[Rfam]
RNA: Small nucleolar RNA sR49
RNA sequence: GGCGAUGAGGAGCUGGAUCCGAUCUGAUGUUUAUGAUGAGGGAGGUACAAGCUGAGC
Numbered sequence: 001g002g003c004g005a006u007g008a009g010g011a012g013c014u015g016g017a018u019c020c021g022a023u024c025u026g027a028u029g030u031u032u033a034u035g036a037u038g039a040g041g042g043a044g045g046u047a048c049a050a051g052c053u054g055a056g057c
Stems, first nucleotide, its partner, number of pairs: 002057002007052001010048001012046003018043003